[Rfam]
RNA: MIR474 microRNA precursor family
Organism: Aquarana catesbeiana
RNA sequence: ACCCACAGGUCAGUGGCCAGCAGGACCCAAAGAUCCGCAGCUUGUGGGUCCUGCUGGGAUCUGGCCACUGACCUGUGGGUCCUGCUGGCCACUGGCCUGUGGGUCC
Numbered sequence: 001a002c003c004c005a006c007a008g009g010u011c012a013g014u015g016g017c018c019a020g021c022a023g024g025a026c027c028c029a030a031a032g033a034u035c036c037g038c039a040g041c042u043u044g045u046g047g048g049u050c051c052u053g054c055u056g057g058g059a060u061c062u063g064g065c066c067a068c069u070g071a072c073c074u075g076u077g078g079g080u081c082c083u084g085c086u087g088g089c090c091a092c093u094g095g096c097c098u099g100u101g102g103g104u105c106c
Stems, first nucleotide, its partner, number of pairs: 001104002004101026032050008058072001